[Rfam]
RNA: Fluoride riboswitch aptamer (crcB RNA motif)
RNA sequence: CCUUGCGGAGGCAAUGGAUUCUGCCUGACCGUUGGUGGUCGAACCGCUCUUCACGAGCUGAUGAUUCCUACCGGCUC
Numbered sequence: 001c002c003u004u005g006c007g008g009a010g011g012c013a014a015u016g017g018a019u020u021c022u023g024c025c026u027g028a029c030c031g032u033u034g035g036u037g038g039u040c041g042a043a044c045c046g047c048u049c050u051u052c053a054c055g056a057g058c059u060g061a062u063g064a065u066u067c068c069u070a071c072c073g074g075c076u077c
Base pairs, nucleotide, nucleotide: 010025011024012023013022016068017067018066020064021063046058047057048056049055